RNA: Alphaproteobacteria transfer-messenger RNA
Organism: Meinhardsimonia xiamenensis
RNA sequence: GGGCUUGAAAUCGCGCCGCUUCAAGCCGAUAUUCACACUGUCCCGCAAGGGACUAUGGGCAUAAACGCGCGCGUAAUAAGCGGAUCGGACCCGGGGGCGGUACCCGGCGGCUCCACCAGAAACCUUCGUUGGAGGAACAUGGGGCCGAAACAGGAUCGACGAACGUGUAAAGGCGUGGCUUUGCCCCGGUGAGGUACCACCGUUAUCGGUCCACAACGCACAAUUGCCAACGACAAUCGUGCUCCGGUCGCUCUCGCCGCGUAAGCGGUGCGAAGACCGAAAUUGAAGUCCUUGUCUCUAGCAAGACAAGGCGGGGUCCGCAGGCACCUGGCAACAGAAGCCUGCAUU
Numbered sequence: 001g002g003g004c005u006u007g008a009a010a011u012c013g014c015g016c017c018g019c020u021u022c023a024a025g026c027c028g029a030u031a032u033u034c035a036c037a038c039u040g041u042c043c044c045g046c047a048a049g050g051g052a053c054u055a056u057g058g059g060c061a062u063a064a065a066c067g068c069g070c071g072c073g074u075a076a077u078a079a080g081c082g083g084a085u086c087g088g089a090c091c092c093g094g095g096g097g098c099g100g101u102a103c104c105c106g107g108c109g110g111c112u113c114c115a116c117c118a119g120a121a122a123c124c125u126u127c128g129u130u131g132g133a134g135g136a137a138c139a140u141g142g143g144g145c146c147g148a149a150a151c152a153g154g155a156u157c158g159a160c161g162a163a164c165g166u167g168u169a170a171a172g173g174c175g176u177g178g179c180u181u182u183g184c185c186c187c188g189g190u191g192a193g194g195u196a197c198c199a200c201c202g203u204u205a206u207c208g209g210u211c212c213a214c215a216a217c218g219c220a221c222a223a224u225u226g227c228c229a230a231c232g233a234c235a236a237u238c239g240u241g242c243u244c245c246g247g248u249c250g251c252u253c254u255c256g257c258c259g260c261g262u263a264a265g266c267g268g269u270g271c272g273a274a275g276a277c278c279g280a281a282a283u284u285g286a287a288g289u290c291c292u293u294g295u296c297u298c299u300a301g302c303a304a305g306a307c308a309a310g311g312c313g314g315g316g317u318c319c320g321c322a323g324g325c326a327c328c329u330g331g332c333a334a335c336a337g338a339a340g341c342c343u344g345c346a347u348u
Stems, first nucleotide, its partner, number of pairs: 040053005057186005067179002069176004081165002085162003091107005108147007187202004193212002196210003314329004320345006